[Rfam]
RNA sequence: GACAAUCGCUGCUCCUGUAAGGGAGGGGAGGAAAGUCCGGGCUCCAUAGGGCAGGGUGCCAGGUAAUGCCUGGGGGGCGCAAGCCUACGGCAAGUGCAGCAGAGAGAAGACCGCCUACGUUUCCUGUUUACAGGAAGCCGGUAAGGGUGAAAGGGUGCGGUAAGAGCGCACCGCGUGCGUGGUAACACGUCACGGCAAGGUAAACCCCACCUGGAGCAAGACCAAAUAGGAAUCCAUGAGGCAUGGCCCAUGCUGGAUUCGGGUAGGUCGCUUGAGACCUGUGGCGACGCAGGUCCUAGAUGAAUGAUUGUCCUCGACAAAACCCGGC
Numbered sequence: 001g002a003c004a005a006u007c008g009c010u011g012c013u014c015c016u017g018u019a020a021g022g023g024a025g026g027g028g029a030g031g032a033a034a035g036u037c038c039g040g041g042c043u044c045c046a047u048a049g050g051g052c053a054g055g056g057u058g059c060c061a062g063g064u065a066a067u068g069c070c071u072g073g074g075g076g077g078c079g080c081a082a083g084c085c086u087a088c089g090g091c092a093a094g095u096g097c098a099g100c101a102g103a104g105a106g107a108a109g110a111c112c113g114c115c116u117a118c119g120u121u122u123c124c125u126g127u128u129u130a131c132a133g134g135a136a137g138c139c140g141g142u143a144a145g146g147g148u149g150a151a152a153g154g155g156u157g158c159g160g161u162a163a164g165a166g167c168g169c170a171c172c173g174c175g176u177g178c179g180u181g182g183u184a185a186c187a188c189g190u191c192a193c194g195g196c197a198a199g200g201u202a203a204a205c206c207c208c209a210c211c212u213g214g215a216g217c218a219a220g221a222c223c224a225a226a227u228a229g230g231a232a233u234c235c236a237u238g239a240g241g242c243a244u245g246g247c248c249c250a251u252g253c254u255g256g257a258u259u260c261g262g263g264u265a266g267g268u269c270g271c272u273u274g275a276g277a278c279c280u281g282u283g284g285c286g287a288c289g290c291a292g293g294u295c296c297u298a299g300a301u302g303a304a305u306g307a308u309u310g311u312c313c314u315c316g317a318c319a320a321a322a323c324c325c326g327g328c
Stems, first nucleotide, its partner, number of pairs: 001312007009028002012025005035328001037327005042216004049249004054212005059073005074088001075086004089207002094205002096201002111146002113142003120135002154172006173196001174194004179188003220269004230260006240254005276295008
Description: Rfam assigns this 328-nucleotide sequence from Aquabacterium soli to the family "Bacterial RNase P class A". Pairs were carried over by alignment from the consensus structure, which is taken from published work. About the family: Ribonuclease P (RNase P) is a ubiquitous endoribonuclease, found in archaea, bacteria and eukarya as well as chloroplasts and mitochondria.